[Rfam]
RNA sequence: GGGAUUAAGUACCUAUUAGUCCUCUAAUAUUGAAAAAUAUUUGUAAUAAAUUGGGUGAAUUGCAAGGAUAUCUUAAUAAAAUAAGACAAUUUGCAGCGAAGCUUGAUUCGGUAUCUUGAAAAAGAGGGAUCAAGAACGUUCAACGACUAGGAAGUGAGUAAUACCAACAAUAAUCUUCCCAAGAGCGCCCGACAUUUAAAAUUUAGUAUAUAGCCCAAAGGGAUCAAAAAUGAGCUAAAAAUAAGCAAACUAAUUAACUAAUUUAAAAUGAUGACAUAGUCUGAACCAUUUUGUGAAAAAUGG
Numbered sequence: 001g002g003g004a005u006u007a008a009g010u011a012c013c014u015a016u017u018a019g020u021c022c023u024c025u026a027a028u029a030u031u032g033a034a035a036a037a038u039a040u041u042u043g044u045a046a047u048a049a050a051u052u053g054g055g056u057g058a059a060u061u062g063c064a065a066g067g068a069u070a071u072c073u074u075a076a077u078a079a080a081a082u083a084a085g086a087c088a089a090u091u092u093g094c095a096g097c098g099a100a101g102c103u104u105g106a107u108u109c110g111g112u113a114u115c116u117u118g119a120a121a122a123a124g125a126g127g128g129a130u131c132a133a134g135a136a137c138g139u140u141c142a143a144c145g146a147c148u149a150g151g152a153a154g155u156g157a158g159u160a161a162u163a164c165c166a167a168c169a170a171u172a173a174u175c176u177u178c179c180c181a182a183g184a185g186c187g188c189c190c191g192a193c194a195u196u197u198a199a200a201a202u203u204u205a206g207u208a209u210a211u212a213g214c215c216c217a218a219a220g221g222g223a224u225c226a227a228a229a230a231u232g233a234g235c236u237a238a239a240a241a242u243a244a245g246c247a248a249a250c251u252a253a254u255u256a257a258c259u260a261a262u263u264u265a266a267a268a269u270g271a272u273g274a275c276a277u278a279g280u281c282u283g284a285a286c287c288a289u290u291u292u293g294u295g296a297a298a299a300a301u302g303g
Stems, first nucleotide, its partner, number of pairs: 002024002051192004056187002061095006071086005096139002103132001112127001114125003143282001145281005195268003199264005288301005
RNA: Group I catalytic intron
Organism: Pyrrhoderma noxium